[Rfam]
RNA sequence: UCCACACCCAUGUGCGUAGGACCCUAAAGGAUCACUAUUAAAUUUGGCACAGGAAUCUAGAAAAGUUAUCACAUGGGUGUGGGACUUGACUUUUCUAGAUAUCUGCACCAAAUUUAAUGGUGAUCCUUUGGGUCUUAUGCACAUGGGUGUGGG
Numbered sequence: 001u002c003c004a005c006a007c008c009c010a011u012g013u014g015c016g017u018a019g020g021a022c023c024c025u026a027a028a029g030g031a032u033c034a035c036u037a038u039u040a041a042a043u044u045u046g047g048c049a050c051a052g053g054a055a056u057c058u059a060g061a062a063a064a065g066u067u068a069u070c071a072c073a074u075g076g077g078u079g080u081g082g083g084a085c086u087u088g089a090c091u092u093u094u095c096u097a098g099a100u101a102u103c104u105g106c107a108c109c110a111a112a113u114u115u116a117a118u119g120g121u122g123a124u125c126c127u128u129u130g131g132g133u134c135u136u137a138u139g140c141a142c143a144u145g146g147g148u149g150u151g152g153g
Stems, first nucleotide, its partner, number of pairs: 002152012015139010026129003030125003034121014050105004055100014069082005
MIR8565 microRNA precursor family: a 153-nucleotide RNA sequence from Amborella trichopoda.
Rfam links the family to the GO terms miRNA-mediated post-transcriptional gene silencing and RISC complex.
The organism belongs to Amborella, within Eukaryota.